[Rfam]
RNA sequence: GGCAGGUAUGGAGACAUGGUGCCCAGCUCCAUCGCUGGUAAGAUCUUUGGAUCGAUCUGCUCUCUGAGUGGUGUGCUGGUCAUCGCCCUGCCCGUCCCCGUCAUCGUAUCGAAC
Numbered sequence: 001g002g003c004a005g006g007u008a009u010g011g012a013g014a015c016a017u018g019g020u021g022c023c024c025a026g027c028u029c030c031a032u033c034g035c036u037g038g039u040a041a042g043a044u045c046u047u048u049g050g051a052u053c054g055a056u057c058u059g060c061u062c063u064c065u066g067a068g069u070g071g072u073g074u075g076c077u078g079g080u081c082a083u084c085g086c087c088c089u090g091c092c093c094g095u096c097c098c099c100g101u102c103a104u105c106g107u108a109u110c111g112a113a114c
Stems, first nucleotide, its partner, number of pairs: 001114001005110001007108005013102003018097002021095002037077004049063003
Dot-bracket structure: (...(.(((((.(((..((.((..............((((........(((.........)))..........))))................))))..))).))))).)...)

The record is a 114-nucleotide RNA sequence from Acipenser ruthenus, which matches "Potassium channel RNA editing signal" in Rfam.
The family's consensus secondary structure is taken from published work.
A search with the family's covariance model found it, with a score of 82 bits.